Overview:
This 72-nucleotide RNA from Mycolicibacterium sarraceniae belongs to the Rfam family "Actinobacteria sRNA Ms_AS-8". The base pairs follow the family's consensus structure. Rfam 15.1 lists 99 matches to the family in 54 species.

[Rfam]
RNA sequence: CUUGAUCAGAGAACCUUGGACUUCAGAUCAUCCUCGGGAAGUGCGCCCACUUUCACGCCCCUCGCCAAGGCU
Numbered sequence: 001c002u003u004g005a006u007c008a009g010a011g012a013a014c015c016u017u018g019g020a021c022u023u024c025a026g027a028u029c030a031u032c033c034u035c036g037g038g039a040a041g042u043g044c045g046c047c048c049a050c051u052u053u054c055a056c057g058c059c060c061c062u063c064g065c066c067a068a069g070g071c072u
Stems, first nucleotide, its partner, number of pairs: 003030005008023002038054003041050003